[Rfam]
RNA: Group II catalytic intron D1-D4-4
Organism: Candidatus Methylospira mobilis
RNA sequence: CAGCAGGUGCGAAUCCCGCCCGGCAACUUUGGCUCCGGCCGGUAGCAACUGGAGCAGUCGUGGAGGUAACGAAGCGGCUGAAGCCUCUGGUGUAGAGGGUUCUAUAAAGCAACUCGGCGAGUAUGUAGGCCGUAACAUGA
Number, nucleotide and partner (000 for none) at each position: 001c000002a000003g000004c000005a000006g000007g000008u000009g000010c000011g000012a000013a000014u000015c000016c000017c000018g000019c000020c042021c041022g040023g039024c038025a000026a000027c000028u000029u000030u000031g000032g000033c000034u000035c000036c000037g000038g024039c023040c022041g021042g020043u000044a000045g000046c000047a000048a000049c000050u089051g088052g087053a086054g085055c080056a079057g078058u077059c076060g075061u000062g000063g000064a000065g070066g000067u000068a000069a000070c065071g000072a000073a000074g000075c060076g059077g058078c057079u056080g055081a000082a000083g000084c000085c054086u053087c052088u051089g050090g000091u000092g000093u000094a000095g000096a000097g114098g113099g000100u111101u000102c109103u000104a000105u000106a000107a000108a000109g102110c000111a100112a000113c098114u097115c000116g000117g133118c132119g131120a000121g000122u000123a000124u000125g000126u000127a000128g000129g000130c000131c119132g118133u117134a000135a000136c000137a000138u000139g000140a000